[Rfam]
RNA sequence: UAGUAUUACAGCGUUUUUAGAAUUUAUCUGGCAGGCUUUCCAGUUUUUGCUGGCAAGACCAA
Numbered sequence: 001u002a003g004u005a006u007u008a009c010a011g012c013g014u015u016u017u018u019a020g021a022a023u024u025u026a027u028c029u030g031g032c033a034g035g036c037u038u039u040c041c042a043g044u045u046u047u048u049g050c051u052g053g054c055a056a057g058a059c060c061a062a
Stems, first nucleotide, its partner, number of pairs: 034059001036057003040053005
RNA: U7 small nuclear RNA